Rfam assigns this 127-nucleotide RNA from Treponema pedis to the family "TD-1 RNA". The base pairs follow the family's consensus structure, which is taken from published work. It is annotated as a cis-regulatory element. NCBI's taxonomy places the organism under Bacteria, Pseudomonadati, Treponematales, Treponema, Treponema pedis. The family has 28 seed sequences and 147 matches in Rfam 15.1. Clan: TD (Treponema denticola) motifs.
[Rfam]
RNA sequence: GUUUAUCUACAUGGGUUUGCCUUUCGGCAAACAUCACUUAUUAUUUGCGCUUUUUUGCUUUUGUGCAAAAGCGCUUAAAAAAACUUUUUUCGGAAACUGCAAUGUUCCGCAAAAAGUGUUUUUAGGA
Numbered sequence: 001g002u003u004u005a006u007c008u009a010c011a012u013g014g015g016u017u018u019g020c021c022u023u024u025c026g027g028c029a030a031a032c033a034u035c036a037c038u039u040a041u042u043a044u045u046u047g048c049g050c051u052u053u054u055u056u057g058c059u060u061u062u063g064u065g066c067a068a069a070a071g072c073g074c075u076u077a078a079a080a081a082a083a084c085u086u087u088u089u090u091c092g093g094a095a096a097c098u099g100c101a102a103u104g105u106u107c108c109g110c111a112a113a114a115a116g117u118g119u120u121u122u123u124a125g126g127a
Stems, first nucleotide, its partner, number of pairs: 013035002015032007047074008079121003083117007092107003096103001